[Rfam]
The family of this 157-nucleotide sequence from Flintibacter faecis is "glmS glucosamine-6-phosphate activated ribozyme aptamer". The match comes from Rfam's covariance-model search (79 bits). The family's RNA type in Rfam is riboswitch.
RNA sequence: UUCCCCACGACAGCGCCAGCGCCCGGCUUGGCCGGGACGACGAGGUGAGGGGAGUAUCGAACAUUCGGCGGAUGCCCCUCCACGCCCCUUCGGGCGUGUCACUCAGACCGUAAAAUAUGCGGGCGACCGCAAAACAAAGCGGCUGAGACCGAAGGAC
Numbered sequence: 001u002u003c004c005c006c007a008c009g010a011c012a013g014c015g016c017c018a019g020c021g022c023c024c025g026g027c028u029u030g031g032c033c034g035g036g037a038c039g040a041c042g043a044g045g046u047g048a049g050g051g052g053a054g055u056a057u058c059g060a061a062c063a064u065u066c067g068g069c070g071g072a073u074g075c076c077c078c079u080c081c082a083c084g085c086c087c088c089u090u091c092g093g094g095c096g097u098g099u100c101a102c103u104c105a106g107a108c109c110g111u112a113a114a115a116u117a118u119g120c121g122g123g124c125g126a127c128c129g130c131a132a133a134a135c136a137a138a139g140c141g142g143c144u145g146a147g148a149c150c151g152a153a154g155g156a157c
Stems, first nucleotide, its partner, number of pairs: 022036006047080005057068004081098006102147005108141001116132001118131005
Dot-bracket structure: .....................((((((...))))))..........(((((.....((((....)))).......)))))((((((......))))))...(((((.(.......(.(((((....))))))........).)))))..........